[Rfam]
RNA sequence: GAAAAAAUAACCCUGUAGAUUUCCUCUACAGGGUCCCUUCGAACUCUUCAAUUGAGCGAAGGCAAAGGGAGAGGAGAAACCGGAGGAAGAACUUAUGGGGAAACGUAAGUCUUCUCCGCGG
Numbered sequence: 001g002a003a004a005a006a007a008u009a010a011c012c013c014u015g016u017a018g019a020u021u022u023c024c025u026c027u028a029c030a031g032g033g034u035c036c037c038u039u040c041g042a043a044c045u046c047u048u049c050a051a052u053u054g055a056g057c058g059a060a061g062g063c064a065a066a067g068g069g070a071g072a073g074g075a076g077a078a079a080c081c082g083g084a085g086g087a088a089g090a091a092c093u094u095a096u097g098g099g100g101a102a103a104c105g106u107a108a109g110u111c112u113u114c115u116c117c118g119c120g121g
Stems, first nucleotide, its partner, number of pairs: 010034009035069005044056003081118004086114004091110005
The record is a 121-nucleotide sequence from Fervidibacillus halotolerans, which matches "ylbH leader" in Rfam.
This family is a putative regulatory RNA structure that is found upstream of the ylbH gene in B. subtilis and related low GC Gram-positive bacteria.
Gene Ontology term of the family: regulation of gene expression.
The family's RNA type in Rfam is cis-regulatory leader.
NCBI's taxonomy places the organism under Bacteria, Bacilli, Caryophanales, Bacillaceae, Fervidibacillus.
A search with the family's covariance model found it, with a score of 97 bits.